[Rfam]
RNA: Mammalian CPEB3 ribozyme
RNA sequence: CGGGGGCGGGGGGCACAGCAGAAGCAUUCACUUCGUGGCCCCUGUCAGAUUCUAGUGAAUCUGCGAAUUCUGCU
Numbered sequence: 001c002g003g004g005g006g007c008g009g010g011g012g013g014c015a016c017a018g019c020a021g022a023a024g025c026a027u028u029c030a031c032u033u034c035g036u037g038g039c040c041c042c043u044g045u046c047a048g049a050u051u052c053u054a055g056u057g058a059a060u061c062u063g064c065g066a067a068u069u070c071u072g073c074u
Base pairs, nucleotide, nucleotide: 009042010041011040012039014037017074018073019072020071021070022069023068024036025035046063047062048061049060050059051058052057